[Rfam]
RNA sequence: AGGCAUAACAGUAGACCUUACCUGACCCUGCCCAUGGUCAGGCAGGGGGGACAGUGUAUGCAAGAGUGAUGUGGAGUUCAUGCCAUCUCUAGUCAGCUUCAUAAGUGGCUGAAUAAUUUGCGGUACUCCUACAUUC
Numbered sequence: 001a002g003g004c005a006u007a008a009c010a011g012u013a014g015a016c017c018u019u020a021c022c023u024g025a026c027c028c029u030g031c032c033c034a035u036g037g038u039c040a041g042g043c044a045g046g047g048g049g050g051a052c053a054g055u056g057u058a059u060g061c062a063a064g065a066g067u068g069a070u071g072u073g074g075a076g077u078u079c080a081u082g083c084c085a086u087c088u089c090u091a092g093u094c095a096g097c098u099u100c101a102u103a104a105g106u107g108g109c110u111g112a113a114u115a116a117u118u119u120g121c122g123g124u125a126c127u128c129c130u131a132c133a134u135u136c
Base pairs, nucleotide, nucleotide: 003061004060005059006058007057016047017046018045019044021042022041023040024039073129074128075127076126078125081122082121083120093112094111095110096109097108
A member of the RNA family "Small nucleolar RNA SNORA58" from Sorex araneus, 136 nucleotides long. The family's consensus secondary structure was predicted with PFOLD. Its family is annotated with nucleolus and RNA processing in the Gene Ontology. Lineage of the source: Eukaryota > Teleostomi > Dipnotetrapodomorpha > Boreoeutheria > Sorex. ACA52 is a member of the H/ACA class of snoRNA that guide the sites of modification of uridines to pseudouridines. The family has 20 seed sequences and 471 matches in Rfam 15.1. Its Rfam clan is "SNORA44 clan". By type it is an H/ACA-box small nucleolar RNA. A reference for the family is Huttenhofer et al. (2001), "RNomics: an experimental approach that identifies 201 candidates for novel, small, non-messenger RNAs in mouse", EMBO J.